[Rfam]
RNA sequence: GCCGCCGGUGAGCCCGCCCCCAAAAGACCAAAGAACCGGGGGGAAAUUACCCAACCCUCCCCUACCGUCCCCUGGCGUCCGCGUUGUCACCCGCUUGGGUGAUCCGGAGGCGGAAUGGUGGCUUCCGCUGCGCGGCAGGGUGCACUCUCAGCCACAGCACCACCGCCGCAAGGCCCGCUGACAUAUGCAAAUGGCCCCCGACUCGACCUGACACCCGAGCGAGGGCCUGCCCACCUGGGAAGCACCAACUUCCCG
Numbered sequence: 001g002c003c004g005c006c007g008g009u010g011a012g013c014c015c016g017c018c019c020c021c022a023a024a025a026g027a028c029c030a031a032a033g034a035a036c037c038g039g040g041g042g043g044a045a046a047u048u049a050c051c052c053a054a055c056c057c058u059c060c061c062c063u064a065c066c067g068u069c070c071c072c073u074g075g076c077g078u079c080c081g082c083g084u085u086g087u088c089a090c091c092c093g094c095u096u097g098g099g100u101g102a103u104c105c106g107g108a109g110g111c112g113g114a115a116u117g118g119u120g121g122c123u124u125c126c127g128c129u130g131c132g133c134g135g136c137a138g139g140g141u142g143c144a145c146u147c148u149c150a151g152c153c154a155c156a157g158c159a160c161c162a163c164c165g166c167c168g169c170a171a172g173g174c175c176c177g178c179u180g181a182c183a184u185a186u187g188c189a190a191a192u193g194g195c196c197c198c199c200g201a202c203u204c205g206a207c208c209u210g211a212c213a214c215c216c217g218a219g220c221g222a223g224g225g226c227c228u229g230c231c232c233a234c235c236u237g238g239g240a241a242g243c244a245c246c247a248a249c250u251u252c253c254c255g
Stems, first nucleotide, its partner, number of pairs: 007235004015077004087102006117167005193227005199221002202219001205216001238253005

The family of this 255-nucleotide RNA is "Streptomyces sRNA 4677". From the family's description: Located in the intergenic region between anti-sigma factor SCO4677 gene and a putative regulatory protein gene SCO4676. scr4677 expression requires the SCO4677 activity and scr4677 sRNA itself seem to affect the levels of the SCO4676-associated transcripts. The family's RNA type in Rfam is small RNA. A search with the family's covariance model found it, with a score of 48 bits. Pairs were carried over by alignment from the consensus structure. The literature on the family includes a 2014 paper in PLoS One by Hindra et al., "Complex intra-operonic dynamics mediated by a small RNA in Streptomyces coelicolor".